RNA sequence: CCUCCGGACUGUUGAACGACCCAAGUAGCAUAGCGAAAGGGAACAGGAUGAAAGAGGAA
Number, nucleotide and partner (000 for none) at each position: 001c057002c056003u055004c054005c000006g000007g000008a000009c046010u045011g044012u043013u042014g000015a000016a000017c000018g000019a000020c041021c040022c039023a000024a000025g000026u000027a000028g034029c033030a000031u000032a000033g029034c028035g000036a000037a000038a000039g022040g021041g020042a013043a012044c011045a010046g009047g000048a000049u000050g000051a000052a000053a000054g004055a003056g002057g001058a000059a000
The record is a 59-nucleotide sequence, which matches "RAGATH-18 RNA" in Rfam. The family's RNA type in Rfam is small RNA.